[Rfam]
RNA sequence: GGCCUCCCUCUGCAGGGAGAUCAAUUGUGGGGCCCCCAGAUUGAUCGCCCUGCAGAGGGAGGCC
Numbered sequence: 001g002g003c004c005u006c007c008c009u010c011u012g013c014a015g016g017g018a019g020a021u022c023a024a025u026u027g028u029g030g031g032g033c034c035c036c037c038a039g040a041u042u043g044a045u046c047g048c049c050c051u052g053c054a055g056a057g058g059g060a061g062g063c064c
Stems, first nucleotide, its partner, number of pairs: 001064017019046008029036002
mir-9242 microRNA precursor family: a 64-nucleotide RNA from Myotis davidii. A search with the family's covariance model found it, with a score of 72 bits. Rfam 15.1 lists 940 matches to the family in 18 species.